The family of this 79-nucleotide RNA from Marvinbryantia formatexigens is "skipping-rope RNA". A search with the family's covariance model found it, with a score of 42 bits.

RNA sequence: AAUUAUUAAGGCAGAGAAUGUGCUGCUACGCAUCUUUGGGUCAGAAGAGAUGCGGGAGAGGGCACACCCGCCAACGAUU
Numbered sequence: 001a002a003u004u005a006u007u008a009a010g011g012c013a014g015a016g017a018a019u020g021u022g023c024u025g026c027u028a029c030g031c032a033u034c035u036u037u038g039g040g041u042c043a044g045a046a047g048a049g050a051u052g053c054g055g056g057a058g059a060g061g062g063c064a065c066a067c068c069c070g071c072c073a074a075c076g077a078u079u
Stems, first nucleotide, its partner, number of pairs: 001079004006074002011029001013027002020065005031047001032041003052071005